Rfam assigns this 115-nucleotide RNA sequence to the family "Group II catalytic intron D1-D4-2". The base pairs follow the family's consensus structure. The literature on the family includes a 2001 paper in Trends Genet by Bonen and Vogel, "The ins and outs of group II introns". Rfam's curators write: Group II introns are found in rRNA, tRNA and mRNA of organelles in fungi, plants and protists, and also in mRNA in bacteria.

RNA sequence: GGUGGAAGGCCCACCGAAGUCUGCUGUCGGAAGCUGGCUUCAAACCACCUCAAGCUGCUUGUAUUAAGAGUGCAGGUAGUGAGCGUUGAGGAAACGUUAAUUCAUAUUAGCAGGU
Numbered sequence: 001g002g003u004g005g006a007a008g009g010c011c012c013a014c015c016g017a018a019g020u021c022u023g024c025u026g027u028c029g030g031a032a033g034c035u036g037g038c039u040u041c042a043a044a045c046c047a048c049c050u051c052a053a054g055c056u057g058c059u060u061g062u063a064u065u066a067a068g069a070g071u072g073c074a075g076g077u078a079g080u081g082a083g084c085g086u087u088g089a090g091g092a093a094a095c096g097u098u099a100a101u102u103c104a105u106a107u108u109a110g111c112a113g114g115u
Stems, first nucleotide, its partner, number of pairs: 001015005016041006023034003046114001048091006054080002057077003061073004096111006